[Rfam]
RNA sequence: ACAAUUCUUGGCUGUGGAUUGGGCAAAUACUAUAUUUUAUUUCAAGGUAUUGCACAUUUCCCAGCCUGGAAAUGU
Numbered sequence: 001a002c003a004a005u006u007c008u009u010g011g012c013u014g015u016g017g018a019u020u021g022g023g024c025a026a027a028u029a030c031u032a033u034a035u036u037u038u039a040u041u042u043c044a045a046g047g048u049a050u051u052g053c054a055c056a057u058u059u060c061c062c063a064g065c066c067u068g069g070a071a072a073u074g075u
Stems, first nucleotide, its partner, number of pairs: 001075003005071003010066002013063002016060002020056002023053001026051006

The record is a 75-nucleotide RNA sequence from Drosophila gunungcola, which matches "mir-310 microRNA precursor family" in Rfam. Its family is annotated with cellular response to nitric oxide, head involution and response to nicotine in the Gene Ontology. Clan: mir-92 microRNA precursor clan. Rfam 15.1 lists 60 matches to the family in 29 species.